[Rfam]
RNA sequence: UCAGUGCGGCGACACGGCCAAAAUUUUCCCCAUGUUGCUCAUAGCUGCCCAUAAUCCACGCGGCUGUUCGAGUGUCAGGCCGUGCCCCGAAUAAUUGGACGUCUUAGCACCCAUCAUCGCAUCACCCGAUUUUGUUGGAGAGGCGAUGGGUCGGUAGUCCAUACAUCA
Numbered sequence: 001u002c003a004g005u006g007c008g009g010c011g012a013c014a015c016g017g018c019c020a021a022a023a024u025u026u027u028c029c030c031c032a033u034g035u036u037g038c039u040c041a042u043a044g045c046u047g048c049c050c051a052u053a054a055u056c057c058a059c060g061c062g063g064c065u066g067u068u069c070g071a072g073u074g075u076c077a078g079g080c081c082g083u084g085c086c087c088c089g090a091a092u093a094a095u096u097g098g099a100c101g102u103c104u105u106a107g108c109a110c111c112c113a114u115c116a117u118c119g120c121a122u123c124a125c126c127c128g129a130u131u132u133u134g135u136u137g138g139a140g141a142g143g144c145g146a147u148g149g150g151u152c153g154g155u156a157g158u159c160c161a162u163a164c165a166u167c168a
Base pairs, nucleotide, nucleotide: 016086017085018084037073038072039071040070045063046062047061048060096161097160098159099158100157114149115148116147117146118145119144120143122141
A member of the RNA family "small nucleolar RNA snR35" from Rhizopogon vesiculosus, 168 nucleotides long. A search with the family's covariance model found it, with a score of 35 bits. For this family Rfam cites "Identification and functional analysis of 20 Box H/ACA small nucleolar RNAs (snoRNAs) from Schizosaccharomyces pombe" (Li et al., J Biol Chem, 2005). The family's consensus secondary structure was predicted with RNAalifold.